[Rfam]
Nucleotides: 229
Base pairs, nucleotide, nucleotide: 005086006085007084008083009082010081011080012079013078014077015076016075017074020041021040022039023038026035027034028033045052046051055067056066057065058064089227090226092224096217097216098215099214100213101212105193106192107191108190109189110188111187112186113185114184115183116181118150119149120148121147125142126141127140128139129138130137154178155177156176160173161172162171195205196204197203
Number, partner (000 for none) and nucleotide at each position: 001000g002000a003000c004000u005086u006085u007084g008083u009082c010081u011080a012079u013078a014077a015076a016075g017074c018000a019000a020041g021040c022039u023038u024000a025000a026035g027034c028033c029000g030000u031000u032000a033028g034027g035026u036000g037000u038023a039022g040021g041020c042000g043000c044000a045052g046051c047000g048000a049000a050000a051046g052045c053000g054000a055067g056066u057065c058064u059000g060000a061000a062000u063000a064058g065057g066056g067055c068000g069000a070000c071000u072000a073000a074017g075016u076015u077014u078013u079012a080011u081010g082009g083008a084007u085006a086005a087000g088000a089227c090226c091000c092224g093000a094000a095000a096217c097216c098215g099214a100213g101212u102000g103000a104000u105193c106192u107191a108190g109189c110188c111187a112186u113185g114184a115183g116181c117000a118150g119149g120148c121147u122000g123000a124000a125142g126141g127140u128139g129138c130137a131000g132000u133000a134000a135000u136000a137130u138129g139128u140127a141126c142125u143000g144000g145000a146000g147121g148120g149119c150118c151000g152000a153000a154178c155177c156176a157000u158000a159000u160173a161172c162171u163000g164000u165000u166000g167000c168000a169000a170000a171162a172161g173160u174000u175000g176156u177155g178154g179000a180000u181116g182000a183115c184114u185113u186112g187111u188110g189109g190108c191107u192106a193105g194000g195205g196204g197203u198000g199000a200000a201000a202000g203197g204196c205195c206000a207000a208000u209000c210000a211000a212101a213100c214099u215098c216097g217096g218000a219000a220000a221000u222000a223000g224092c225000u226090g227089g228000u229000u

The record is a 229-nucleotide part of an RNA from bacterium NHP-B, which matches "Bacterial large subunit ribosomal RNA" in Rfam.
A search with the family's covariance model found it, with a score of 2742 bits.
The family is grouped with related families in Rfam's "LSU clan".